[Rfam]
RNA sequence: GAUUACAUUUUGAUCUCUCUGUAAUCGCGGCUG
Numbered sequence: 001g002a003u004u005a006c007a008u009u010u011u012g013a014u015c016u017c018u019c020u021g022u023a024a025u026c027g028c029g030g031c032u033g
Base pairs, nucleotide, nucleotide: 001026002025003024004023005022006021007020

Shown here is a 33-nucleotide RNA sequence, a member of the family "S4-Bacteroidia ribosomal protein leader". It is one of the family's seed sequences. The literature on the family includes a 2020 paper in BMC Microbiol by Eckert and Weinberg, "Discovery of 20 novel ribosomal leader candidates in bacteria and archaea". The family is grouped with related families in Rfam's "Ribosomal Protein S4 Leader clan".